[Rfam]
RNA sequence: CCAGGAGUUGAUUGUCCAAACGCAAUUCUUGUAUUACGUCUCUAUAACUAGGAGUUGUGGAUGGACAUCAUGCUCCAGA
Numbered sequence: 001c002c003a004g005g006a007g008u009u010g011a012u013u014g015u016c017c018a019a020a021c022g023c024a025a026u027u028c029u030u031g032u033a034u035u036a037c038g039u040c041u042c043u044a045u046a047a048c049u050a051g052g053a054g055u056u057g058u059g060g061a062u063g064g065a066c067a068u069c070a071u072g073c074u075c076c077a078g079a
Stems, first nucleotide, its partner, number of pairs: 002078001004076004009070004014066005021059011
This 79-nucleotide RNA sequence from Cynoglossus semilaevis belongs to the Rfam family "mir-219 microRNA precursor family". Lineage of the source: Eukaryota > Opisthokonta > Metazoa > Neoteleostei > Cynoglossus. A reference for the family is Lim et al. (2003), "Vertebrate microRNA genes", Science.